[Rfam]
RNA sequence: AUAAAAAUAGCAUUUAUACCGUAGACAGCAGGUGCCGACAGGCUUAAUUUCCCGCCGAGGUAAUCCUAUAUAAACAGCAGGUCGUUUGCUGUUUAACGGAACCUCCAUGUCUACUGGCAUGGAGGUUUUUUACUUGUGUA
Numbered sequence: 001a002u003a004a005a006a007a008u009a010g011c012a013u014u015u016a017u018a019c020c021g022u023a024g025a026c027a028g029c030a031g032g033u034g035c036c037g038a039c040a041g042g043c044u045u046a047a048u049u050u051c052c053c054g055c056c057g058a059g060g061u062a063a064u065c066c067u068a069u070a071u072a073a074a075c076a077g078c079a080g081g082u083c084g085u086u087u088g089c090u091g092u093u094u095a096a097c098g099g100a101a102c103c104u105c106c107a108u109g110u111c112u113a114c115u116g117g118c119a120u121g122g123a124g125g126u127u128u129u130u131u132a133c134u135u136g137u138g139u140a
Base pairs, nucleotide, nucleotide: 028055029054031052032051034043035042036041102125103124104123105122106121107120108119109118110117111116
RNA: Ribosomal protein L10 leader
Organism: Bacillus thermotolerans